Shown here is an 84-nucleotide RNA sequence from Lentivirus humimdef1, a member of the family "HIV gag stem loop 3 (GSL3)".
The family's consensus secondary structure was predicted with PFOLD.
Rfam's curators write: This family consists of several HIV gag stem loop 3 (GSL3) sequences. GSL3 is known to direct specific packaging of HIV-1 genomic RNA. Deletion of GSL3 leads to decreases in both viral RNA packaging and dimerisation.
The sequence is in the family's curated seed alignment.
RNA sequence: GGCCAGGGGGAAAGAAAAAAUAUAGAUUAAAACAUCUAGUAUGGGCAAGCAGGGAACUAGAGAGAUUUGCAGUCAACCCUGGCC
Numbered sequence: 001g002g003c004c005a006g007g008g009g010g011a012a013a014g015a016a017a018a019a020a021u022a023u024a025g026a027u028u029a030a031a032a033c034a035u036c037u038a039g040u041a042u043g044g045g046c047a048a049g050c051a052g053g054g055a056a057c058u059a060g061a062g063a064g065a066u067u068u069g070c071a072g073u074c075a076a077c078c079c080u081g082g083c084c
Base pairs, nucleotide, nucleotide: 001084002083003082004081005080006079007078008077